[Rfam]
RNA sequence: CUGACGGGCGCGUCCGGGUCAAUUGCGGACUGCAACACCCGAUCUCCCUGCCGGUGCCGCCGUCGAUGGCGGUCUCGGCCGGGGAACGCGUCACCAUCAG
Numbered sequence: 001c002u003g004a005c006g007g008g009c010g011c012g013u014c015c016g017g018g019u020c021a022a023u024u025g026c027g028g029a030c031u032g033c034a035a036c037a038c039c040c041g042a043u044c045u046c047c048c049u050g051c052c053g054g055u056g057c058c059g060c061c062g063u064c065g066a067u068g069g070c071g072g073u074c075u076c077g078g079c080c081g082g083g084g085a086a087c088g089c090g091u092c093a094c095c096a097u098c099a100g
Stems, first nucleotide, its partner, number of pairs: 001100004008091006015041004023035005045085005050079005
Dot-bracket structure: ((((...((((((.((((....(((((...)))))..))))...((((((((((....................))))).))))))))))).....))))

L4-Archaeoglobi ribosomal protein leades: a 100-nucleotide RNA from Natronomonas moolapensis. Pairs were carried over by alignment from the consensus structure, which is taken from published work. It is one of the family's seed sequences.